Shown here is a 142-nucleotide RNA sequence from Bos indicus x Bos taurus, a member of the family "Small nucleolar RNA SNORA70". Rfam classes the family as an H/ACA-box small nucleolar RNA. A reference for the family is Charette and Gray (2000), "Pseudouridine in RNA: what, where, how, and why", IUBMB Life. Taxonomically the source falls in Bos (Eukaryota, Craniata, Sarcopterygii, Ruminantia). Rfam describes the family as follows. snoRNA U70 seems to be exclusive to mammals and is a member of the H/ACA class of snoRNA which contain H (ANANNA) and ACA box motifs.

RNA sequence: UUGCAGCCAGUUAAGCUGACUGUGCUGUCUUCCCCACUUCCCCACGGGGGCCUGGUGUGCAGUGGCUGCAAAUAGCACCCUCCUCGGUAGUGUAUGCAGUGUGUUGCUGCACAGGUUGCCCUAACAGACCUUGGAGAUAGCC
Dot-bracket structure: .((((.............((((..((.(..................).))..)))).))))........................(((........((((.(..........).)))).........)))............